Shown here is a 143-nucleotide RNA from Candidatus Epulonipiscioides saccharophilum, a member of the family "Ribosomal protein L10 leader". It is annotated as a cis-regulatory leader.

RNA sequence: UGAAAAUGGAAUACUAUACCGCAGACAGUAGGUGCCCGAGUGGCAUAACGUGUACAACCUACCGAGGUUUCUUUAAUAAAGGAUUGUAUAAGAAGUCACUUUACCUGCGGUUGCUUGCGUAAAGUGACUUUUUCAUUUUUAAU
Numbered sequence: 001u002g003a004a005a006a007u008g009g010a011a012u013a014c015u016a017u018a019c020c021g022c023a024g025a026c027a028g029u030a031g032g033u034g035c036c037c038g039a040g041u042g043g044c045a046u047a048a049c050g051u052g053u054a055c056a057a058c059c060u061a062c063c064g065a066g067g068u069u070u071c072u073u074u075a076a077u078a079a080a081g082g083a084u085u086g087u088a089u090a091a092g093a094a095g096u097c098a099c100u101u102u103a104c105c106u107g108c109g110g111u112u113g114c115u116u117g118c119g120u121a122a123a124g125u126g127a128c129u130u131u132u133u134c135a136u137u138u139u140u141a142a143u
Base pairs, nucleotide, nucleotide: 028062029061030060031059032058033057034044035043036042095128096127097126098125099124100123101122102121103120104119